[Rfam]
RNA sequence: UGGUUGGAAUGCAUUACUUUGGAUUCUAUUUGCCGGUGCAGCUUCGGUUGCGCAUGCCGGCGGAAUACUCCGAGUCUCACGGAGUGUUCAAAACAAGACAUUUGCUUGAACGAUCAUUGCAUGGGAUAUUGGAAAAGGACUAUGAGCUCUUAAUCUUGGUUUCGGCCUAGUAAUGGAUAGCAGGGUCUGCCGGGGGCGUACGUAUCGUCCCGCGAGGGGUGAAAUCCGUAGACCGUGACGAGACGACCAAGAGCGCAAGCAUACGCCAAGAAAAGACCCGCUAACCUCUGGGCGAGAGCCUGACGAUUAAAGACGAUUAGAUACCGUCGUAGUUUUAUCUGUGAACGAUGGGAACUGACUGAAGUUUUAUGCGAAGUACUACAAGAGUUGUUUGAAUUCCUGGAAACGUCGAGUAUCCCUCCAGGGGUAGUAUUGUUGCAAAGCUGAAACUUAAAGGAAU
Number, nucleotide and partner (000 for none) at each position: 001u423002g422003g421004u000005u000006g000007g000008a000009a420010u000011g293012c292013a000014u290015u000016a000017c000018u284019u283020u000021g000022g000023a000024u000025u000026c000027u000028a000029u000030u000031u000032g000033c000034c000035g000036g000037u000038g000039c000040a000041g000042c000043u000044u000045c000046g000047g000048u000049u000050g000051c000052g000053c000054a000055u000056g000057c000058c000059g000060g000061c000062g000063g000064a000065a000066u000067a000068c000069u000070c000071c000072g000073a000074g000075u000076c000077u000078c000079a000080c000081g000082g000083a000084g000085u000086g000087u000088u000089c000090a000091a000092a000093a000094c000095a000096a000097g000098a000099c000100a000101u000102u000103u000104g000105c000106u000107u000108g000109a000110a000111c000112g000113a000114u000115c000116a000117u000118u000119g000120c000121a000122u000123g000124g000125g000126a000127u000128a000129u000130u000131g000132g000133a000134a000135a000136a000137g000138g000139a000140c000141u000142a000143u000144g000145a000146g000147c000148u000149c000150u000151u000152a000153a000154u000155c000156u000157u000158g000159g000160u000161u000162u000163c000164g000165g000166c000167c000168u000169a000170g000171u000172a000173a000174u000175g000176g000177a000178u000179a000180g000181c000182a000183g279184g278185g277186u276187c000188u273189g000190c000191c270192g000193g000194g000195g267196g266197c265198g264199u263200a262201c245202g244203u000204a000205u241206c240207g239208u238209c237210c000211c235212g234213c000214g000215a000216g227217g226218g225219g000220u000221g000222a000223a000224a000225u218226c217227c216228g000229u000230a000231g000232a000233c000234c212235g211236u000237g209238a208239c207240g206241a205242g000243a000244c202245g201246a000247c000248c000249a000250a000251g000252a000253g260254c259255g000256c000257a000258a000259g254260c253261a000262u200263a199264c198265g197266c196267c195268a000269a000270g191271a000272a000273a188274a000275g000276a186277c185278c184279c183280g000281c000282u000283a019284a018285c000286c000287u000288c000289u000290g014291g000292g012293c011294g000295a000296g000297a000298g339299c000300c000301u000302g335303a334304c000305g000306a000307u000308u332309a000310a000311a000312g328313a327314c326315g325316a000317u000318u000319a000320g000321a000322u000323a000324c000325c315326g314327u313328c312329g000330u000331a000332g308333u000334u303335u302336u000337a000338u000339c298340u000341g000342u000343g000344a000345a000346c000347g000348a000349u000350g419351g418352g417353a000354a414355c413356u000357g397358a000359c000360u000361g000362a000363a389364g388365u387366u386367u385368u384369a000370u383371g382372c000373g000374a000375a000376g000377u000378a000379c000380u000381a000382c371383a370384a368385g367386a366387g365388u364389u363390g000391u000392u000393u000394g000395a000396a000397u357398u000399c000400c000401u408402g407403g000404a000405a000406a000407c402408g401409u000410c000411g000412a000413g355414u354415a000416u000417c352418c351419c350420u009421c003422c002423a001424g000425g452426g451427g450428u000429a000430g000431u000432a000433u000434u000435g444436u443437u442438g000439c000440a000441a000442a437443g436444c435445u000446g000447a000448a000449a000450c427451u426452u425453a000454a000455a000456g000457g000458a000459a000460u000